Glutamine-II riboswitch aptamer: a 55-nucleotide sequence. A reference for the family is Huang et al. (2019), "Structure and ligand binding of the glutamine-II riboswitch", Nucleic Acids Res. The base pairs follow the family's consensus structure, which is taken from published work.

RNA sequence: GUCCGUUCAUCCCUUCGGGGACGCAUGAAUCCUAGGCAUGGAACGGGGUCUAGGU
Numbered sequence: 001g002u003c004c005g006u007u008c009a010u011c012c013c014u015u016c017g018g019g020g021a022c023g024c025a026u027g028a029a030u031c032c033u034a035g036g037c038a039u040g041g042a043a044c045g046g047g048g049u050c051u052a053g054g055u
Base pairs, nucleotide, nucleotide: 004045005044006043007042008041010021011020012019013018031054032053033052034051035050036049037048